Nitrogen stress-induced RNA 8: a 175-nucleotide sequence from Cylindrospermum stagnale. Pairs were carried over by alignment from the consensus structure, which was predicted with RNAalifold. For this family Rfam cites "Identification of Conserved and Potentially Regulatory Small RNAs in Heterocystous Cyanobacteria" (Brenes-Alvarez et al., Front Microbiol, 2016). Rfam classes the family as a small RNA.
RNA sequence: AUUAAAAUUGCAAGGAUUGAUGAUAAGUAAAACAUUUAGCACGGGUUAAAAUACCGCUCUUGUUGUUGACUUGAUUUGUCAUUCCUACAACCUAUUGAAUUUUAUUUGUGAUAUUUUUUCAGAGUCCAAGGUGUAUUGCCACUUUCAAGCUAUUAGGACGGGAUCAACUCCCGUC
Numbered sequence: 001a002u003u004a005a006a007a008u009u010g011c012a013a014g015g016a017u018u019g020a021u022g023a024u025a026a027g028u029a030a031a032a033c034a035u036u037u038a039g040c041a042c043g044g045g046u047u048a049a050a051a052u053a054c055c056g057c058u059c060u061u062g063u064u065g066u067u068g069a070c071u072u073g074a075u076u077u078g079u080c081a082u083u084c085c086u087a088c089a090a091c092c093u094a095u096u097g098a099a100u101u102u103u104a105u106u107u108g109u110g111a112u113a114u115u116u117u118u119u120c121a122g123a124g125u126c127c128a129a130g131g132u133g134u135a136u137u138g139c140c141a142c143u144u145u146c147a148a149g150c151u152a153u154u155a156g157g158a159c160g161g162g163a164u165c166a167a168c169u170c171c172c173g174u175c
Base pairs, nucleotide, nucleotide: 001114002113006109008090009089010088013086014085015084016083018081019080022076023075024074026072027071029067030066032064036062038060039059042056043055121154122153123151124150125149128145129144130143131142132141133140157175158174159173160172161171162170